[Rfam]
RNA sequence: GCGCGCCCACCGCCGAGUCCGCAUGUCCACGUCACCGACGUGCGCGGAGCCGGGGACCCACCAGUCCCAUGGGGUGAAUCGGCCUGCUCGCAGGCCGUAGGGCAGCUUCCACGCCCGAACCCGACAGCUAACCCGGUAGGCGGCAUGGAAGCCUAG
Number, nucleotide and partner (000 for none) at each position: 001g000002c000003g000004c000005g000006c000007c000008c000009a000010c000011c142012g141013c140014c139015g000016a000017g000018u048019c047020c046021g045022c044023a000024u000025g000026u000027c000028c000029a000030c000031g000032u000033c000034a000035c000036c000037g000038a000039c000040g000041u000042g000043c000044g022045c021046g020047g019048a018049g137050c136051c135052g134053g133054g132055g000056a000057c000058c000059c071060a070061c000062c000063a000064g000065u000066c000067c000068c000069a000070u060071g059072g122073g121074g120075u000076g000077a000078a000079u000080c097081g096082g095083c094084c000085u000086g000087c000088u000089c000090g000091c000092a000093g000094g083095c082096c081097g080098u000099a000100g116101g115102g114103c113104a000105g000106c000107u000108u000109c000110c000111a000112c000113g103114c102115c101116c100117g000118a000119a000120c074121c073122c072123g000124a000125c000126a000127g000128c000129u000130a000131a000132c054133c053134c052135g051136g050137u049138a000139g014140g013141c012142g011143g000144c000145a000146u000147g000148g000149a000150a000151g000152c000153c000154u000155a000156g000